A member of the RNA family "Alphaproteobacteria transfer-messenger RNA" from Sphingomonas sp. CFBP 8760, 342 nucleotides long.
[Rfam]
RNA sequence: GCGUUUGCACACAGGGACAUGACGCCCUAUAUCGUUUCGGUCGGGUUCUACCCGGCUAUGGCGAUAAACUGCGGCGUAGACUAGGCGCAGCGGACCCGGGGGCGGUACCCGGCGGCUCCACCACUACCGGCUCGCAAGGGGCGGUAAUGACGGGGCCGAACUAGGAUCGACGUGUGUUGAAAGGCGCUGUUUUCGCUCGGAAUGGGACCACCGUAACGGCCCAUUACACAAGUGCCAACGAUAACGAAGCACUCGCGAUUGCGGCGUAACUGAGGGCCUCACGGCCUAAGGUUACUCCAAGAUAGCGCGGUUGGACCGCACCGGGCAACAGAAGCGGAAUCC
Numbered sequence: 001g002c003g004u005u006u007g008c009a010c011a012c013a014g015g016g017a018c019a020u021g022a023c024g025c026c027c028u029a030u031a032u033c034g035u036u037u038c039g040g041u042c043g044g045g046u047u048c049u050a051c052c053c054g055g056c057u058a059u060g061g062c063g064a065u066a067a068a069c070u071g072c073g074g075c076g077u078a079g080a081c082u083a084g085g086c087g088c089a090g091c092g093g094a095c096c097c098g099g100g101g102g103c104g105g106u107a108c109c110c111g112g113c114g115g116c117u118c119c120a121c122c123a124c125u126a127c128c129g130g131c132u133c134g135c136a137a138g139g140g141g142c143g144g145u146a147a148u149g150a151c152g153g154g155g156c157c158g159a160a161c162u163a164g165g166a167u168c169g170a171c172g173u174g175u176g177u178u179g180a181a182a183g184g185c186g187c188u189g190u191u192u193u194c195g196c197u198c199g200g201a202a203u204g205g206g207a208c209c210a211c212c213g214u215a216a217c218g219g220c221c222c223a224u225u226a227c228a229c230a231a232g233u234g235c236c237a238a239c240g241a242u243a244a245c246g247a248a249g250c251a252c253u254c255g256c257g258a259u260u261g262c263g264g265c266g267u268a269a270c271u272g273a274g275g276g277c278c279u280c281a282c283g284g285c286c287u288a289a290g291g292u293u294a295c296u297c298c299a300a301g302a303u304a305g306c307g308c309g310g311u312u313g314g315a316c317c318g319c320a321c322c323g324g325g326c327a328a329c330a331g332a333a334g335c336g337g338a339a340u341c342c
Stems, first nucleotide, its partner, number of pairs: 040056005060197005071190007086176003090173003096112005113158007198213003203223003208219002308323004314340001317337001
Record summary
The base pairs follow the family's consensus structure, which is taken from published work. Lineage of the source: Bacteria > Pseudomonadati > Sphingomonadales > Sphingomonadaceae > Sphingomonas.